[Rfam]
Annotation:
A member of the RNA family "7SK RNA" from Myotis davidii, 326 nucleotides long.
RNA sequence: AGCUGUGAAGGGCAAUCUGGCUGCGACAUCUGCACCCCAUUGAUCGCCAGGGUUGAUUUGGCUGAUCUGGCUGGCUAGGCGGGUGUCCCCCUCCUCCCUCACCGAUCCAUGUGCGUCCCUCCCGAAGCUGCGCUCUGGGUCGAAGAGCAUGACCUUCCCCCAGAGGAGAGGACCGGUCUUAGAUCAAGGUUAGUAGCUGUGCUCCCCUGCUAGAACCUCCAAACAAGCUCUCAAGGUCCAUUUGUAGGAGAGUGUAGGGUAGUCAAGUUUCCAAAACUCCAGACACAUCCAAAUGAGGCACUACAUGUGGCAGUCUGUCUUUCUAG
Numbered sequence: 001a002g003c004u005g006u007g008a009a010g011g012g013c014a015a016u017c018u019g020g021c022u023g024c025g026a027c028a029u030c031u032g033c034a035c036c037c038c039a040u041u042g043a044u045c046g047c048c049a050g051g052g053u054u055g056a057u058u059u060g061g062c063u064g065a066u067c068u069g070g071c072u073g074g075c076u077a078g079g080c081g082g083g084u085g086u087c088c089c090c091c092u093c094c095u096c097c098c099u100c101a102c103c104g105a106u107c108c109a110u111g112u113g114c115g116u117c118c119c120u121c122c123c124g125a126a127g128c129u130g131c132g133c134u135c136u137g138g139g140u141c142g143a144a145g146a147g148c149a150u151g152a153c154c155u156u157c158c159c160c161c162a163g164a165g166g167a168g169a170g171g172a173c174c175g176g177u178c179u180u181a182g183a184u185c186a187a188g189g190u191u192a193g194u195a196g197c198u199g200u201g202c203u204c205c206c207c208u209g210c211u212a213g214a215a216c217c218u219c220c221a222a223a224c225a226a227g228c229u230c231u232c233a234a235g236g237u238c239c240a241u242u243u244g245u246a247g248g249a250g251a252g253u254g255u256a257g258g259g260u261a262g263u264c265a266a267g268u269u270u271c272c273a274a275a276a277c278u279c280c281a282g283a284c285a286c287a288u289c290c291a292a293a294u295g296a297g298g299c300a301c302u303a304c305a306u307g308u309g310g311c312a313g314u315c316u317g318u319c320u321u322u323c324u325a326g
Base pairs, nucleotide, nucleotide: 002107005102006101007100008099010098011097012096015092019090020089025087026086027085028084029083030082031081032080033078035074036073037070038069039068042067043066044065045064046062047061048060116171117170118166119165120164121163122139123138125136127135140162142160147158149156196268197267198266202262203261205259206258207257208256209255210254217250218249219248220247223245224244225243226242227241293324295321296320297319298318299317300314301313302312304310
The family's RNA type in Rfam is non-coding RNA gene. On this family, see Blencowe, Curr Biol 2002: "Transcription: surprising role for an elusive small nuclear RNA". From the family's description: 7SK was discovered as an abundant small nuclear RNA in the mid-70s but a possible function has only recently been suggested. Rfam 15.1 lists 49,373 matches to the family in 668 species.